The record is a 239-nucleotide RNA from Paenibacillus faecis, which matches "glmS glucosamine-6-phosphate activated ribozyme aptamer" in Rfam. Lineage of the source: Bacteria > Bacillati > Bacillota > Paenibacillaceae > Paenibacillus. It scores 78 bits against the family's covariance model. Rfam classes the family as a riboswitch. The family's consensus secondary structure is taken from published work.
[Rfam]
RNA sequence: UCGGAAGUGAAAGCGCCAGAGCUUCAUUUCGCGCGAGAAAGUCCUUUCGGAAGCAGUGAACAAGCAAGUUGUUCAUAAGUGGAUGGAUUCCGGAAUUCAGGACGAAUCGGCAAAGGGAAGCUGACGAGGUGGAGGUGUUCGAGUUGUUCGGCGGGGGCCUCCCGGUGAUACAUCGCACCGUGACCGCAAGGGCAAAAGGAAUGGGCGACCGUUCUGACAAACCUUACGGGCCGAUGUUA
Numbered sequence: 001u002c003g004g005a006a007g008u009g010a011a012a013g014c015g016c017c018a019g020a021g022c023u024u025c026a027u028u029u030c031g032c033g034c035g036a037g038a039a040a041g042u043c044c045u046u047u048c049g050g051a052a053g054c055a056g057u058g059a060a061c062a063a064g065c066a067a068g069u070u071g072u073u074c075a076u077a078a079g080u081g082g083a084u085g086g087a088u089u090c091c092g093g094a095a096u097u098c099a100g101g102a103c104g105a106a107u108c109g110g111c112a113a114a115g116g117g118a119a120g121c122u123g124a125c126g127a128g129g130u131g132g133a134g135g136u137g138u139u140c141g142a143g144u145u146g147u148u149c150g151g152c153g154g155g156g157g158c159c160u161c162c163c164g165g166u167g168a169u170a171c172a173u174c175g176c177a178c179c180g181u182g183a184c185c186g187c188a189a190g191g192g193c194a195a196a197a198g199g200a201a202u203g204g205g206c207g208a209c210c211g212u213u214c215u216g217a218c219a220a221a222c223c224u225u226a227c228g229g230g231c232c233g234a235u236g237u238u239a
Base pairs, nucleotide, nucleotide: 020122021121022120023119024118025117027115029113131162132161133160134159135158139151140150141149142148163180164179165178166177167176184229185228186227188225189224190223198215199214200213201212202211203210204209